[Rfam]
RNA sequence: UGGCGCCCAGUGUGAGGGUUGGAUACGGAGGAUCCAGUGAGGGAAGAAGACGUCCCCAAGGAACGCGUUCCACAAGAAUUCUUCACUCUGGACAAGCCGCGGGAACCUGCCUCAGCUACAACCAGAAGUAAGUACCUAUGUCUGAUUAUGGGACAAGAAUUAAGCAGGCACGAACUUUAUGUUAGGCAAUUGCAGGAUGCCUUACGGAUGUGAGGAGUAAAGGUUAAAAUAGAGGAUCUAUUGAGGUUCUUUAAAUUUAUUAAGGAAACCUGUUCUU
Numbered sequence: 001u002g003g004c005g006c007c008c009a010g011u012g013u014g015a016g017g018g019u020u021g022g023a024u025a026c027g028g029a030g031g032a033u034c035c036a037g038u039g040a041g042g043g044a045a046g047a048a049g050a051c052g053u054c055c056c057c058a059a060g061g062a063a064c065g066c067g068u069u070c071c072a073c074a075a076g077a078a079u080u081c082u083u084c085a086c087u088c089u090g091g092a093c094a095a096g097c098c099g100c101g102g103g104a105a106c107c108u109g110c111c112u113c114a115g116c117u118a119c120a121a122c123c124a125g126a127a128g129u130a131a132g133u134a135c136c137u138a139u140g141u142c143u144g145a146u147u148a149u150g151g152g153a154c155a156a157g158a159a160u161u162a163a164g165c166a167g168g169c170a171c172g173a174a175c176u177u178u179a180u181g182u183u184a185g186g187c188a189a190u191u192g193c194a195g196g197a198u199g200c201c202u203u204a205c206g207g208a209u210g211u212g213a214g215g216a217g218u219a220a221a222g223g224u225u226a227a228a229a230u231a232g233a234g235g236a237u238c239u240a241u242u243g244a245g246g247u248u249c250u251u252u253a254a255a256u257u258u259a260u261u262a263a264g265g266a267a268a269c270c271u272g273u274u275c276u277u
Base pairs, nucleotide, nucleotide: 006031007030012026013025014024036053037051038050085129086128087127088125089124095117099113101111102110137155139153141152142151143150144149161204162203163202164200165199166198211253212252213251214250215249216248217247218246221239222238223237224236225235262277263276264275265274266273

Shown here is a 277-nucleotide RNA sequence from Nannospalax galili, a member of the family "Mason-Pfizer monkey virus packaging signal".
The family's consensus secondary structure was predicted with PFOLD.
About the family: This family represents a group of sequences that are related to the Mason-Pfizer monkey virus (MPMV) packaging signal. The packaging signal is located in the 5' UTR and is required for specific RNA encapsidation.
NCBI's taxonomy places the organism under Eukaryota, Gnathostomata, Eutheria, Glires, Nannospalax.
It scores 140 bits against the family's covariance model.
By type it is a cis-regulatory element.